[Rfam]
RNA sequence: ACUUCUUGGCGUUCACGGCGUGGUCCUUGGUGUGACUACAACAAUUAAGGCACGCGGUGAAUGCCAAGACGA
Numbered sequence: 001a002c003u004u005c006u007u008g009g010c011g012u013u014c015a016c017g018g019c020g021u022g023g024u025c026c027u028u029g030g031u032g033u034g035a036c037u038a039c040a041a042c043a044a045u046u047a048a049g050g051c052a053c054g055c056g057g058u059g060a061a062u063g064c065c066a067a068g069a070c071g072a
Base pairs, nucleotide, nucleotide: 004069005068006067009064010063011062012061013060014059015058016057020055021054022053025050026049027048028047029046030045031044
RNA: mir-124 microRNA precursor family